[Rfam]
Notes:
This 74-nucleotide sequence from Colius striatus belongs to the Rfam family "Small nucleolar RNA SNORD59". It scores 70 bits against the family's covariance model. On this family, see Galardi et al., Mol Cell Biol 2002: "Purified box C/D snoRNPs are able to reproduce site-specific 2'-O-methylation of target RNA in vitro". Lineage of the source: Eukaryota > Eumetazoa > Archosauria > Telluraves > Colius. The family's consensus secondary structure was predicted with ILM. Rfam 15.1 lists 1,355 matches to the family in 620 species. Rfam links the family to the GO terms nucleolus and RNA processing.
RNA sequence: CCUUCGGUGAUGAGGAACAACUUGACUUUCGUUCUUCUGAGCUUUCUGAAGCAACGUUCAGUAAUCUGAGGAGG
Numbered sequence: 001c002c003u004u005c006g007g008u009g010a011u012g013a014g015g016a017a018c019a020a021c022u023u024g025a026c027u028u029u030c031g032u033u034c035u036u037c038u039g040a041g042c043u044u045u046c047u048g049a050a051g052c053a054a055c056g057u058u059c060a061g062u063a064a065u066c067u068g069a070g071g072a073g074g
Base pairs, nucleotide, nucleotide: 001074002073003072005070